[Rfam]
RNA sequence: CUGAAGAAUUUGAAGACCUGAACUUGAUCUUCAAGGAUUUGAAGACUUCAACUUGCAGGCUUAAAGAAUUUGAAGACUUCAACU
Numbered sequence: 001c002u003g004a005a006g007a008a009u010u011u012g013a014a015g016a017c018c019u020g021a022a023c024u025u026g027a028u029c030u031u032c033a034a035g036g037a038u039u040u041g042a043a044g045a046c047u048u049c050a051a052c053u054u055g056c057a058g059g060c061u062u063a064a065a066g067a068a069u070u071u072g073a074a075g076a077c078u079u080c081a082a083c084u
Stems, first nucleotide, its partner, number of pairs: 002081005009074006017066001019064001021062001025057002030051002033048003
RNA: MIR8024 microRNA precursor family